[Rfam]
RNA sequence: UUGCCCGAUGAUUAUAAAAAGACGCGAAAGAGGACUUGAAGCUGGAAUUCUUUUCCUUUUAUUCUCUUCUCUACUCUUUGUCUUUAACUUCUCCUCUACUUUAAUUUUCUCUGCUUCUUUUUCUCUGCCUUUUCCUCUCUCUGGAUGUCCAGCGUCCUAUGAGCGAAGAUUAUGAGAUAUGAGGGCAA
Dot-bracket structure: ((((((........................((((.((.......)).))))...................................................................................................................................))))))